Rfam assigns this 53-nucleotide sequence from Caulobacter radicis to the family "nhaA-I RNA".
The family's RNA type in Rfam is riboswitch.
NCBI's taxonomy places the organism under Bacteria, Pseudomonadota, Alphaproteobacteria, Caulobacteraceae, Caulobacter.
The family's consensus secondary structure is taken from published work.
It scores 50 bits against the family's covariance model.
About the family: Acidobacteria, Alphaproteobacteria, Betaproteobacteria and Gammaproteobacteria, Verrucomicrobia, cand. division NC10.
[Rfam]
RNA sequence: GGGUGGUCAGCUGUUUUGGUUGAUCAGGGUUUACGUUGGUCGGGCCGCCAGCG
Numbered sequence: 001g002g003g004u005g006g007u008c009a010g011c012u013g014u015u016u017u018g019g020u021u022g023a024u025c026a027g028g029g030u031u032u033a034c035g036u037u038g039g040u041c042g043g044g045c046c047g048c049c050a051g052c053g
Stems, first nucleotide, its partner, number of pairs: 005025008034053007